[Rfam]
Rfam assigns this 105-nucleotide RNA sequence from Prunus avium to the family "MIR6274 microRNA precursor family".

RNA sequence: GGAUAACAUUGUUUUGCUAUUCCCGGCCAGUAACACAAUGACACGUGGAAAAGUUAUCCUACGUGUCAUUGAGUUAUUGGAAGGGGAUAACAAAAAGUGAUAUCC
Numbered sequence: 001g002g003a004u005a006a007c008a009u010u011g012u013u014u015u016g017c018u019a020u021u022c023c024c025g026g027c028c029a030g031u032a033a034c035a036c037a038a039u040g041a042c043a044c045g046u047g048g049a050a051a052a053g054u055u056a057u058c059c060u061a062c063g064u065g066u067c068a069u070u071g072a073g074u075u076a077u078u079g080g081a082a083g084g085g086g087a088u089a090a091c092a093a094a095a096a097g098u099g100a101u102a103u104c105c
Stems, first nucleotide, its partner, number of pairs: 002104004012095005018089003022085003027080008036071013050057001
Dot-bracket structure: .((((......(((((.(((.(((..((((((((.(((((((((((((.(......).))))))))))))).))))))))..))).))).))))).....)))).

Overview
The source organism's lineage runs through Eukaryota, rosids, fabids, Amygdaloideae and Prunus. The family has 2 seed sequences and 342 matches in Rfam 15.1.